[Rfam]
Nucleotides: 054
Base pairs, nucleotide, nucleotide: 002007019046020045021044022043023042024041025040026039027038028037029036
Number, partner (000 for none) and nucleotide at each position: 001000u002007g003000g004000u005000a006000c007002c008000c009000u010000c011000u012000u013000u014000u015000c016000c017000c018000c019046g020045c021044c022043c023042c024041g025040g026039u027038u028037a029036a030000u031000u032000c033000a034000c035000u036029u037028u038027a039026g040025c041024c042023g043022g044021g045020g046019c047000u048000u049000u050000u051000u052000u053000u054000u
Notes: This 54-nucleotide RNA sequence from Cyclonatronum proteinivorum belongs to the Rfam family "Nitrogen stress-induced RNA 1". For this family Rfam cites "Heterocyst-specific transcription of NsiR1, a non-coding RNA encoded in a tandem array of direct repeats in cyanobacteria" (Ionescu et al., J Mol Biol, 2010). NCBI's taxonomy places the organism under Bacteria, Pseudomonadati, Balneolota, Cyclonatronaceae, Cyclonatronum.